Overview
This 569-nucleotide part of an RNA from Thermoactinomyces daqus belongs to the Rfam family "Bacterial large subunit ribosomal RNA". NCBI's taxonomy places the organism under Bacteria, Bacillati, Bacilli, Caryophanales, Thermoactinomyces. The base pairs follow the family's consensus structure, which is taken from published work.
[Rfam]
RNA sequence: UACUAAGGGCACACGGUGGAUGCCUUGGCGCCAGGAGCCGAUGAAGGACGGGGCGAACACCGAUAUGCCUCGGGGAGCCGUAAGCAGGCGUUGAUCCGGGGAUUUCCGAAUGGGGCAACCCACCAGCUUGAAGAGCUGGUACCGCCAUCUGAAUCCAUAGGAUGGACGGGGGCAGACCAGGGGAACUGAAACAUCUUAGUACCCUGAGGAGAAGAAAGCAAACGCGAUUCCCUGAGUAGCGGCGAGCGAAAGGGGAACAGCCCAAACCGACAGACUUCGUCUGUCGGGGUUGUAGGACGUCUCACACGGAGUGAGAAAGGCGAGGGAUAGGUGAAGUGGUUCUGGAAAGACCCGCGAUAAAAGGUAACAGCCCUGUAACCGAAAUCCUUCGCCCUCCGAGACGGAUCCUGAGUACCGCGGGACACGUGAAACCCCGUGGGAAGCUGGGAGGACCACCUCCCAAGGCUAAAUACUCCCUGGCGACCGAUAGUGAACCAGUACCGUGAGGGAAAGGUGAAAAGCACCCCGGGAGGGGAGUGAAAGAGAACCUGAAACCGUGUGCUUACAAU
Numbered sequence: 001u002a003c004u005a006a007g008g009g010c011a012c013a014c015g016g017u018g019g020a021u022g023c024c025u026u027g028g029c030g031c032c033a034g035g036a037g038c039c040g041a042u043g044a045a046g047g048a049c050g051g052g053g054c055g056a057a058c059a060c061c062g063a064u065a066u067g068c069c070u071c072g073g074g075g076a077g078c079c080g081u082a083a084g085c086a087g088g089c090g091u092u093g094a095u096c097c098g099g100g101g102a103u104u105u106c107c108g109a110a111u112g113g114g115g116c117a118a119c120c121c122a123c124c125a126g127c128u129u130g131a132a133g134a135g136c137u138g139g140u141a142c143c144g145c146c147a148u149c150u151g152a153a154u155c156c157a158u159a160g161g162a163u164g165g166a167c168g169g170g171g172g173c174a175g176a177c178c179a180g181g182g183g184a185a186c187u188g189a190a191a192c193a194u195c196u197u198a199g200u201a202c203c204c205u206g207a208g209g210a211g212a213a214g215a216a217a218g219c220a221a222a223c224g225c226g227a228u229u230c231c232c233u234g235a236g237u238a239g240c241g242g243c244g245a246g247c248g249a250a251a252g253g254g255g256a257a258c259a260g261c262c263c264a265a266a267c268c269g270a271c272a273g274a275c276u277u278c279g280u281c282u283g284u285c286g287g288g289g290u291u292g293u294a295g296g297a298c299g300u301c302u303c304a305c306a307c308g309g310a311g312u313g314a315g316a317a318a319g320g321c322g323a324g325g326g327a328u329a330g331g332u333g334a335a336g337u338g339g340u341u342c343u344g345g346a347a348a349g350a351c352c353c354g355c356g357a358u359a360a361a362a363g364g365u366a367a368c369a370g371c372c373c374u375g376u377a378a379c380c381g382a383a384a385u386c387c388u389u390c391g392c393c394c395u396c397c398g399a400g401a402c403g404g405a406u407c408c409u410g411a412g413u414a415c416c417g418c419g420g421g422a423c424a425c426g427u428g429a430a431a432c433c434c435c436g437u438g439g440g441a442a443g444c445u446g447g448g449a450g451g452a453c454c455a456c457c458u459c460c461c462a463a464g465g466c467u468a469a470a471u472a473c474u475c476c477c478u479g480g481c482g483a484c485c486g487a488u489a490g491u492g493a494a495c496c497a498g499u500a501c502c503g504u505g506a507g508g509g510a511a512a513g514g515u516g517a518a519a520a521g522c523a524c525c526c527c528g529g530g531a532g533g534g535g536a537g538u539g540a541a542a543g544a545g546a547a548c549c550u551g552a553a554a555c556c557g558u559g560u561g562c563u564u565a566c567a568a569u
Stems, first nucleotide, its partner, number of pairs: 007564010022549001023514002027485002029482007036474002038172002046107003049062003068101007077089003112121003122140007142169003145165006177208001178206005188195002218225002228470001229256005239247002259467004267287007294409003298403005317395001319393010330380003336353001338352003342349001362374003415439007446461005501508002524535004